[Rfam]
RNA sequence: GAAUUAUGGCUGGACUUUAAGAGUGCAUUUUCCCAUUUGCUGUGGACAGGACCAUAAGAAAACACUCCCUCUAGGUUUUCUGUGUGCUAUUUGCUAGCAAUCAACUUGUUGGGAACAUUU
Numbered sequence: 001g002a003a004u005u006a007u008g009g010c011u012g013g014a015c016u017u018u019a020a021g022a023g024u025g026c027a028u029u030u031u032c033c034c035a036u037u038u039g040c041u042g043u044g045g046a047c048a049g050g051a052c053c054a055u056a057a058g059a060a061a062a063c064a065c066u067c068c069c070u071c072u073a074g075g076u077u078u079u080c081u082g083u084g085u086g087c088u089a090u091u092u093g094c095u096a097g098c099a100a101u102c103a104a105c106u107u108g109u110u111g112g113g114a115a116c117a118u119u120u
Stems, first nucleotide, its partner, number of pairs: 004051002007048001010045003025040003067113003074106004085099003